Notes: Rfam assigns this 436-nucleotide part of an RNA from Pseudovirgaria hyperparasitica to the family "Eukaryotic large subunit ribosomal RNA". The base pairs follow the family's consensus structure, which is taken from published work.

RNA sequence: AGUAGUAGUAAAUACUCGAAUAAGAACUUUAAGGACUAAAGUAGGGAAGGGUUCCGUGUGAACAGUAGUUGGACACGGGUUAGUCGAUUCUAAGGGGUAGGGAAACUCCGUUUUAAUAUACGCGCUUACGCGUUACCCCCCGAAAGGGAAGCCGGUUAAUAUCCCGGCACCUAGAUAUAGAUUCUUCGUGGUAACGUAACUAAAGGUAGAGACGUUGGUAAGAGUCCUAGGAAGAGUUAUCUUUUCUUCUUAAUAGUUAAAUUACCCUAAAAUCGGUUUAUCCGGAGCUAGGGUACUAUAGCUAGAAGAGCUCUAUACUUUUACGGAGUCCGGUACGCUUUUAACGACCCUUAAAAAUCCGCCCGAAGUAAUAGUUUUUACGCUAGCUCAUACCUAUAACCGUAGUAGGUCUCUAAGGUAAAUAGCCUCUAGUUAA
Numbered sequence: 001a002g003u004a005g006u007a008g009u010a011a012a013u014a015c016u017c018g019a020a021u022a023a024g025a026a027c028u029u030u031a032a033g034g035a036c037u038a039a040a041g042u043a044g045g046g047a048a049g050g051g052u053u054c055c056g057u058g059u060g061a062a063c064a065g066u067a068g069u070u071g072g073a074c075a076c077g078g079g080u081u082a083g084u085c086g087a088u089u090c091u092a093a094g095g096g097g098u099a100g101g102g103a104a105a106c107u108c109c110g111u112u113u114u115a116a117u118a119u120a121c122g123c124g125c126u127u128a129c130g131c132g133u134u135a136c137c138c139c140c141c142g143a144a145a146g147g148g149a150a151g152c153c154g155g156u157u158a159a160u161a162u163c164c165c166g167g168c169a170c171c172u173a174g175a176u177a178u179a180g181a182u183u184c185u186u187c188g189u190g191g192u193a194a195c196g197u198a199a200c201u202a203a204a205g206g207u208a209g210a211g212a213c214g215u216u217g218g219u220a221a222g223a224g225u226c227c228u229a230g231g232a233a234g235a236g237u238u239a240u241c242u243u244u245u246c247u248u249c250u251u252a253a254u255a256g257u258u259a260a261a262u263u264a265c266c267c268u269a270a271a272a273u274c275g276g277u278u279u280a281u282c283c284g285g286a287g288c289u290a291g292g293g294u295a296c297u298a299u300a301g302c303u304a305g306a307a308g309a310g311c312u313c314u315a316u317a318c319u320u321u322u323a324c325g326g327a328g329u330c331c332g333g334u335a336c337g338c339u340u341u342u343a344a345c346g347a348c349c350c351u352u353a354a355a356a357a358u359c360c361g362c363c364c365g366a367a368g369u370a371a372u373a374g375u376u377u378u379u380a381c382g383c384u385a386g387c388u389c390a391u392a393c394c395u396a397u398a399a400c401c402g403u404a405g406u407a408g409g410u411c412u413c414u415a416a417g418g419u420a421a422a423u424a425g426c427c428u429c430u431a432g433u434u435a436a
Stems, first nucleotide, its partner, number of pairs: 015033002018030003034434004043414004049394002054078006063071002086389002089147002094141002096112003100109003120133003151168005171386004176382001178380003181376001188197003205363003209359002214348004219343007227333002230250006254304005264294006273285004311328004316323002400409002416428004